[Rfam]
RNA sequence: GUUAUCGGAUCCACCUCAAUCCACAUAGGUUGAGGUGGAUUGGAGUAGAACUUGAACUGAACUAAAUUCCACUUCAAUUCAUCCCAACCCAUAUGGAUUGAUGUGUAUUCGACU
Numbered sequence: 001g002u003u004a005u006c007g008g009a010u011c012c013a014c015c016u017c018a019a020u021c022c023a024c025a026u027a028g029g030u031u032g033a034g035g036u037g038g039a040u041u042g043g044a045g046u047a048g049a050a051c052u053u054g055a056a057c058u059g060a061a062c063u064a065a066a067u068u069c070c071a072c073u074u075c076a077a078u079u080c081a082u083c084c085c086a087a088c089c090c091a092u093a094u095g096g097a098u099u100g101a102u103g104u105g106u107a108u109u110c111g112a113c114u
Stems, first nucleotide, its partner, number of pairs: 005112006012105003016101008025092002028089005035082009045072002
MIR5565 microRNA precursor family: a 114-nucleotide RNA from Miscanthus lutarioriparius. Gene Ontology terms of the family: RISC complex and miRNA-mediated post-transcriptional gene silencing. It scores 81 bits against the family's covariance model.